[Rfam]
Nucleotides: 072
Stems, first nucleotide, its partner, number of pairs: 001071007010024004026042005048064005
Number, partner (000 for none) and nucleotide at each position: 001071g002070c003069c004068c005067a006066c007065g008000u009000a010024g011023c012022u013021c014000a015000g016000u017000g018000g019000u020000a021013g022012a023011g024010c025000a026042c027041u028040c029039c030038c031000u032000u033000g034000g035000u036000a037000a038030g039029g040028g041027a042026g043000a044000g045000g046000u047000c048064g049063a050062g051061u052060g053000u054000u055000c056000a057000a058000u059000c060052c061051a062050c063049u064048c065007c066006g067005u068004g069003g070002g071001c072000a
Rfam assigns this 72-nucleotide RNA from Parvibaculum lavamentivorans to the family "tRNA". Lineage of the source: Bacteria > Pseudomonadota > Alphaproteobacteria > Parvibaculaceae > Parvibaculum lavamentivorans. From the family's description: Transfer RNA (tRNA) molecules are approximately 80 nucleotides in length. The family's RNA type in Rfam is transfer RNA. The family's consensus secondary structure is taken from published work.